[Rfam]
RNA sequence: CCGUAAUAACAAAAAAAGAAAUGAGAACUAUUUUAGUAAAUACAUAUUGGUGGUGGCACUCCGUACAACUCACAAGGUCGUAAGGAACCAGUCCUCAUGUAUAUACUACCGAGAUAUAAUAAAAGGUCUGUC
Numbered sequence: 001c002c003g004u005a006a007u008a009a010c011a012a013a014a015a016a017a018g019a020a021a022u023g024a025g026a027a028c029u030a031u032u033u034u035a036g037u038a039a040a041u042a043c044a045u046a047u048u049g050g051u052g053g054u055g056g057c058a059c060u061c062c063g064u065a066c067a068a069c070u071c072a073c074a075a076g077g078u079c080g081u082a083a084g085g086a087a088c089c090a091g092u093c094c095u096c097a098u099g100u101a102u103a104u105a106c107u108a109c110c111g112a113g114a115u116a117u118a119a120u121a122a123a124a125g126g127u128c129u130g131u132c
Stems, first nucleotide, its partner, number of pairs: 036106003040102006049095002052092001060086003066080001068078003